A member of the RNA family "Small nucleolar RNA snoR99" from Protea cynaroides, 101 nucleotides long. Gene Ontology terms of the family: RNA processing and nucleolus. By type it is an H/ACA-box small nucleolar RNA. NCBI's taxonomy places the organism under Eukaryota, Streptophyta, Streptophytina, Spermatophyta, Protea.
RNA sequence: AUGCCUCAGGGAUGAACUGAGUCCCUGAUAACAUUAUCCAUCCUAUCACUUUGUCAACAGUCAAUUUGGUUUUCUGCUGAUCAUUAAUGGAUGGAACAUGC
Numbered sequence: 001a002u003g004c005c006u007c008a009g010g011g012a013u014g015a016a017c018u019g020a021g022u023c024c025c026u027g028a029u030a031a032c033a034u035u036a037u038c039c040a041u042c043c044u045a046u047c048a049c050u051u052u053g054u055c056a057a058c059a060g061u062c063a064a065u066u067u068g069g070u071u072u073u074c075u076g077c078u079g080a081u082c083a084u085u086a087a088u089g090g091a092u093g094g095a096a097c098a099u100g101c
Base pairs, nucleotide, nucleotide: 037095038094039093040092041091042090053081054080055079056078058076059075060074